[Rfam]
RNA sequence: UGAGCAGACUGUGUGAUAGCACAGCGGUUUCGCUGUGAGGAAAGUCCGAGCACCAUAGGACAGGAUAGCUGCUAACGGCAGCCGGGGGCGACCCUAGAGCCAGUGCAACAGAGAGAUACCGCCGCGGGUUUCCUGCGGUAAGGGUGGAAAGGUGUGGUAAGAGCACACCAGAGUGCAGGAGACUGUACUGCUAUGUAAACCUUAUCCGGUGCAACGUCUAUUGGUACACGCUGUCUUAACAUCGGUCCGGUGGACAGCGGCGUAAUGGCGGCUAGAGCUGUGAGGCGACUCACAGACCAGAUAAAUUAUCACACACGACAGAACUCGGCUUACAGGUCUGGUCAUGGA
Number, nucleotide and partner (000 for none) at each position: 001u344002g343003a342004g000005c340006a339007g338008a337009c336010u335011g333012u313013g312014u311015g310016a309017u308018a307019g000020c037021a036022c035023a034024g033025c032026g031027g000028u000029u000030u000031c026032g025033c024034u023035g022036u021037g020038a000039g000040g000041a000042a331043a330044g329045u000046c328047c327048g326049a325050g324051c211052a210053c209054c208055a000056u000057a000058g248059g247060a246061c245062a000063g207064g206065a205066u204067a203068g082069c081070u080071g079072c078073u000074a000075a000076c000077g000078g072079c071080a070081g069082c068083c097084g095085g094086g093087g092088g000089c000090g000091a000092c087093c086094c085095u084096a000097g083098a202099g201100c000101c000102a000103g200104u199105g196106c195107a194108a000109c000110a000111g000112a000113g000114a000115g000116a000117u000118a000119c143120c142121g139122c138123c137124g136125c135126g134127g133128g132129u000130u000131u000132c128133c127134u126135g125136c124137g123138g122139u121140a000141a000142g120143g119144g000145u000146g000147g000148a000149a000150a000151g169152g168153u167154g166155u165156g164157g000158u000159a000160a000161g000162a000163g000164c156165a155166c154167a153168c152169c151170a000171g191172a189173g188174u187175g186176c185177a184178g183179g000180a000181g000182a000183c178184u177185g176186u175187a174188c173189u172190g000191c171192u000193a000194u107195g106196u105197a000198a000199a104200c103201c099202u098203u067204a066205u065206c064207c063208g054209g053210u052211g051212c000213a000214a000215c270216g269217u268218c267219u000220a000221u000222u000223g000224g000225u000226a000227c000228a000229c259230g258231c257232u256233g255234u254235c000236u000237u000238a000239a000240c252241a251242u250243c249244g000245g061246u060247c059248c058249g243250g242251u241252g240253g000254a234255c233256a232257g231258c230259g229260g000261c000262g000263u000264a000265a000266u000267g218268g217269c216270g215271g000272c000273u000274a000275g000276a000277g000278c295279u294280g293281u292282g291283a290284g289285g000286c000287g000288a000289c284290u283291c282292a281293c280294a279295g278296a000297c000298c000299a000300g000301a000302u000303a000304a000305a000306u000307u018308a017309u016310c015311a014312c013313a012314c000315a000316c000317g000318a000319c000320a000321g000322a000323a000324c050325u049326c048327g047328g046329c044330u043331u042332a000333c011334a000335g010336g009337u008338c007339u006340g005341g000342u003343c002344a001345u000346g000347g000348a000